[Rfam]
This 156-nucleotide RNA from Populus tomentosa belongs to the Rfam family "MIR2912 microRNA precursor family". Rfam 15.1 lists 15,051 matches to the family in 15 species. The family's consensus secondary structure was predicted with RNAalifold. A search with the family's covariance model found it, with a score of 114 bits.
RNA sequence: UUUAGAACUCGAGAUAUGGGCUGAACAUUGAACAGUAUCUAGGCUGCAGAAUAAAUUUUGACUUCUCUGUUGUUGUUAUAAUUUGAACUUGAAAACAGUCUUUUUGAAUCUUGGACUCUUCAUAAAAGUUUUAGGACUAUGUUUUAGCUUUACAUU
Numbered sequence: 001u002u003u004a005g006a007a008c009u010c011g012a013g014a015u016a017u018g019g020g021c022u023g024a025a026c027a028u029u030g031a032a033c034a035g036u037a038u039c040u041a042g043g044c045u046g047c048a049g050a051a052u053a054a055a056u057u058u059u060g061a062c063u064u065c066u067c068u069g070u071u072g073u074u075g076u077u078a079u080a081a082u083u084u085g086a087a088c089u090u091g092a093a094a095a096c097a098g099u100c101u102u103u104u105u106g107a108a109u110c111u112u113g114g115a116c117u118c119u120u121c122a123u124a125a126a127a128g129u130u131u132u133a134g135g136a137c138u139a140u141g142u143u144u145u146a147g148c149u150u151u152a153c154a155u156u
Stems, first nucleotide, its partner, number of pairs: 003154001006151002008147002011145009021134005027129003035123002041119003045115001048112002051109002054105002060099001062098002068092001072088003